[Rfam]
RNA sequence: AAUCAAUGCGAAGGAUUGUUUCAACCAUGUGUAUUCACAAUUCCAUGUGGUCAUGGACGUGUUCGAGGAGUUCCACUAUGGAGGAUACCCCAUAGGUAGGCUUUACCAGACAGGUAGAAGAGGUGGAAAAUCUCAACCGAGCAGACACGGUGCUGUGAUGAAACGCAAGAAAAUGGUAUCGCUAACUGGUCGCUAUCGCAAUAGAUAUGAAGUACGCACUUCAUUGAACCAAGUAGAGGAUAGUGUGGCAGCUAUGUCAAUCGCUUGGAGUGCCAUAAGAUAGUUGUCCAAUUGAUGCUGGUAAUCAGCUAUAAGACCAGACGCGAGUACGAGUAGCCCAAACUUGGAUAUAUUAGAAGAUUAAUAUGCUGAAUGGUGGGUGGAAGUUGUUGGUAGCCAAUCCAGCCAUAGAUUGACGCAAGUUGGGAUGGAAAGAUACGAGGUCGCUCCUUGUGUCUCAGCUCCAUCUCCUAUGUGACCGAAUUACCACUACGUUUUAUGAAGGUAAGGCGAAGGCCUGAGACAAUCUUUCGCGUUGG
Dot-bracket structure: ...........(((..(..((...(((((.....(((((......))))).))))).((((((.....((((...((((((.(....).))))))...))))(((((.....)))))..(((((.....))))).........))))))......(....(((.....(.....((..((((...((((((((((((............((((....)))).......((((((....(((((..[[[[..)))..))....))))))...]]]]...))))))..[[[[[.....((((.....)))).....))))))..))))...(.....(((((...]]]]]...................[[[[.....)))))....)....(.(.........).)..((((...(.......))(((...(..((.(((((((.....)))))))..)]]]]).)...)))))).....)......)...)....))).........((((....))))).))..)..)))........
Numbered sequence: 001a002a003u004c005a006a007u008g009c010g011a012a013g014g015a016u017u018g019u020u021u022c023a024a025c026c027a028u029g030u031g032u033a034u035u036c037a038c039a040a041u042u043c044c045a046u047g048u049g050g051u052c053a054u055g056g057a058c059g060u061g062u063u064c065g066a067g068g069a070g071u072u073c074c075a076c077u078a079u080g081g082a083g084g085a086u087a088c089c090c091c092a093u094a095g096g097u098a099g100g101c102u103u104u105a106c107c108a109g110a111c112a113g114g115u116a117g118a119a120g121a122g123g124u125g126g127a128a129a130a131u132c133u134c135a136a137c138c139g140a141g142c143a144g145a146c147a148c149g150g151u152g153c154u155g156u157g158a159u160g161a162a163a164c165g166c167a168a169g170a171a172a173a174u175g176g177u178a179u180c181g182c183u184a185a186c187u188g189g190u191c192g193c194u195a196u197c198g199c200a201a202u203a204g205a206u207a208u209g210a211a212g213u214a215c216g217c218a219c220u221u222c223a224u225u226g227a228a229c230c231a232a233g234u235a236g237a238g239g240a241u242a243g244u245g246u247g248g249c250a251g252c253u254a255u256g257u258c259a260a261u262c263g264c265u266u267g268g269a270g271u272g273c274c275a276u277a278a279g280a281u282a283g284u285u286g287u288c289c290a291a292u293u294g295a296u297g298c299u300g301g302u303a304a305u306c307a308g309c310u311a312u313a314a315g316a317c318c319a320g321a322c323g324c325g326a327g328u329a330c331g332a333g334u335a336g337c338c339c340a341a342a343c344u345u346g347g348a349u350a351u352a353u354u355a356g357a358a359g360a361u362u363a364a365u366a367u368g369c370u371g372a373a374u375g376g377u378g379g380g381u382g383g384a385a386g387u388u389g390u391u392g393g394u395a396g397c398c399a400a401u402c403c404a405g406c407c408a409u410a411g412a413u414u415g416a417c418g419c420a421a422g423u424u425g426g427g428a429u430g431g432a433a434a435g436a437u438a439c440g441a442g443g444u445c446g447c448u449c450c451u452u453g454u455g456u457c458u459c460a461g462c463u464c465c466a467u468c469u470c471c472u473a474u475g476u477g478a479c480c481g482a483a484u485u486a487c488c489a490c491u492a493c494g495u496u497u498u499a500u501g502a503a504g505g506u507a508a509g510g511c512g513a514a515g516g517c518c519u520g521a522g523a524c525a526a527u528c529u530u531u532c533g534c535g536u537u538g539g
Stems, first nucleotide, its partner, number of pairs: 012531003017526001020523002025056005035050005058149006069102004076095006083088001103117005120134005156520001161498003169491001175487001176480001179326004186320006192284006210221004229268006239258002241254003246275004287348005297309004330386001336381005368462004391405001393403001408474003411424001415423001425471003431465001434463001435458001437455007508519004
The family of this 539-nucleotide RNA is "ROOL RNA". About the family: Firmicutes, Fusobacteria (1 example), Tenericutes (1 example).